Rfam assigns this 125-nucleotide RNA from Betta splendens to the family "Small nucleolar RNA SNORA71". Gene Ontology terms of the family: nucleolus and RNA processing. On this family, see Ganot et al., Genes Dev 1997: "The family of box ACA small nucleolar RNAs is defined by an evolutionarily conserved secondary structure and ubiquitous sequence elements essential for RNA accumulation".
[Rfam]
RNA sequence: CCCUGUAUAGAAAAUGAUCACGGUGUGUCUGUCGCCGGAUCAUCGAUGGUACAGGAAGAUGAACGUGUGGGCCUUUCCCGUGUCUGAAGGAACCUAUUCCUCUCAGACCCUGGUGCUCUCAGACA
Dot-bracket structure: .(((((((.....((((((..((((.......)))).)))))).....)))))))........(.((.((((.........(((((.((((......))))..)))))......)))).)))...
The source organism's lineage runs through Eukaryota, Deuterostomia, Actinopterygii, Anabantaria and Betta.
The base pairs follow the family's consensus structure, which was predicted with PFOLD.